[Rfam]
RNA sequence: CGCAUUUUUCAGCCAGGCAGAGCUCGACCGCCGCUUCAAGCCACGAGGGCAUUCAUCGACAAGUACAGGGACACCUUGGGUCGAGCCGAUCUGCGAAGUGUUGCAGGUCGCACCA
Numbered sequence: 001c002g003c004a005u006u007u008u009u010c011a012g013c014c015a016g017g018c019a020g021a022g023c024u025c026g027a028c029c030g031c032c033g034c035u036u037c038a039a040g041c042c043a044c045g046a047g048g049g050c051a052u053u054c055a056u057c058g059a060c061a062a063g064u065a066c067a068g069g070g071a072c073a074c075c076u077u078g079g080g081u082c083g084a085g086c087c088g089a090u091c092u093g094c095g096a097a098g099u100g101u102u103g104c105a106g107g108u109c110g111c112a113c114c115a
Base pairs, nucleotide, nucleotide: 016032017031018030020028077115078114079113080111087110088109090107091106092105093104094103095102096101